[Rfam]
RNA: c-di-AMP riboswitch aptamer (ydaO/yuaA leader)
RNA sequence: UCGCGUCAAGCGCCGAAGGCAGGAGCGGGGGAACCAAGGUAGGUGCCGCGAAAGGCCGUCGAAGACGGUCCGGACCGGCUUGGGGUGAAGACGCGCCACGUGCGCGACCGGGCAACUCAUCCGCCCGAACCCGACAGCUCACCUCGCAGGCGUCGGUGAGGAGAACU
Numbered sequence: 001u002c003g004c005g006u007c008a009a010g011c012g013c014c015g016a017a018g019g020c021a022g023g024a025g026c027g028g029g030g031g032a033a034c035c036a037a038g039g040u041a042g043g044u045g046c047c048g049c050g051a052a053a054g055g056c057c058g059u060c061g062a063a064g065a066c067g068g069u070c071c072g073g074a075c076c077g078g079c080u081u082g083g084g085g086u087g088a089a090g091a092c093g094c095g096c097c098a099c100g101u102g103c104g105c106g107a108c109c110g111g112g113c114a115a116c117u118c119a120u121c122c123g124c125c126c127g128a129a130c131c132c133g134a135c136a137g138c139u140c141a142c143c144u145c146g147c148a149g150g151c152g153u154c155g156g157u158g159a160g161g162a163g164a165a166c167u
Base pairs, nucleotide, nucleotide: 011152012151013150014149025147026146027145028144029143030142035082036081037080038079083132084131085130092106093105094104110126111125112124113123